[Rfam]
Nucleotides: 102
Stems, first nucleotide, its partner, number of pairs: 018088001020086006030048006058078007
Number, partner (000 for none) and nucleotide at each position: 001000u002000g003000u004000c005000g006000a007000u008000u009000a010000a011000u012000g013000a014000u015000g016000a017000a018088g019000a020086c021085u022084c023083g024082u025081a026000u027000a028000u029000c030048c031047u032046u033045g034044g035043g036000a037000a038000u039000a040000u041000g042000g043035c044034c045033c046032a047031a048030g049000a050000g051000u052000a053000c054000c055000u056000a057000c058078c059077c060076g061075g062074a063073a064072a065000c066000c067000g068000a069000u070000a071000a072064u073063u074062u075061u076060c077059g078058g079000a080000c081025u082024a083023u084022g085021a086020g087000c088018c089000c090000a091000c092000g093000g094000a095000a096000u097000u098000a099000a100000a101000g102000a

The family of this 102-nucleotide sequence from Paenibacillus nasutitermitis is "Purine riboswitch aptamer". NCBI's taxonomy places the organism under Bacteria, Bacillati, Bacillota, Caryophanales, Paenibacillus.